[Rfam]
Shown here is a 169-nucleotide RNA sequence from Nyctibius grandis, a member of the family "U2 spliceosomal RNA". Gene Ontology terms of the family: mRNA branch site recognition, U2 snRNP and pre-mRNA branch point binding. U2 is a small nuclear RNA (snRNA) component of the spliceosome (involved in pre-mRNA splicing).

RNA sequence: UAUUCUUUUUGGCCUUUUGGCUAAGAUUGUCAUGUCUGUUCUUGUCUGUUUAAUAUCUGACAGGUCUUUGCUGUAAGGACGUGUUAUUAAAUAGCUCUCUGGAGCUGGGCUAUGGCCUGUGGGCUUGCUCUGUCUUCCCCCUGCACUGAAACCCGUCAGUGACCCUCAC
Numbered sequence: 001u002a003u004u005c006u007u008u009u010u011g012g013c014c015u016u017u018u019g020g021c022u023a024a025g026a027u028u029g030u031c032a033u034g035u036c037u038g039u040u041c042u043u044g045u046c047u048g049u050u051u052a053a054u055a056u057c058u059g060a061c062a063g064g065u066c067u068u069u070g071c072u073g074u075a076a077g078g079a080c081g082u083g084u085u086a087u088u089a090a091a092u093a094g095c096u097c098u099c100u101g102g103a104g105c106u107g108g109g110c111u112a113u114g115g116c117c118u119g120u121g122g123g124c125u126u127g128c129u130c131u132g133u134c135u136u137c138c139c140c141c142u143g144c145a146c147u148g149a150a151a152c153c154c155g156u157c158a159g160u161g162a163c164c165c166u167c168a169c
Stems, first nucleotide, its partner, number of pairs: 007026003011022004043062004048057001064080007108140002112136001114134002121130003144161005

Record summary:
It is annotated as a spliceosomal small nuclear RNA. On this family, see Zwieb, Nucleic Acids Res 1997: "The uRNA database".